Shown here is a 102-nucleotide RNA from Falsibacillus albus, a member of the family "Purine riboswitch aptamer". The base pairs follow the family's consensus structure, which is taken from published work. It scores 84 bits against the family's covariance model. NCBI's taxonomy places the organism under Bacteria, Bacillati, Caryophanales, Bacillaceae, Falsibacillus.

RNA sequence: UCUAAUGAAUUAUAAAUAGCUCGUAUAUCCUUGGAGAUAUGGUCCAAAAGUUUCUACCAAACUACCGUGAAUAGUUUGACUACGAGAAAAUGAUUUUUCACU
Numbered sequence: 001u002c003u004a005a006u007g008a009a010u011u012a013u014a015a016a017u018a019g020c021u022c023g024u025a026u027a028u029c030c031u032u033g034g035a036g037a038u039a040u041g042g043u044c045c046a047a048a049a050g051u052u053u054c055u056a057c058c059a060a061a062c063u064a065c066c067g068u069g070a071a072u073a074g075u076u077u078g079a080c081u082a083c084g085a086g087a088a089a090a091u092g093a094u095u096u097u098u099c100a101c102u
Stems, first nucleotide, its partner, number of pairs: 020086006031047005058078007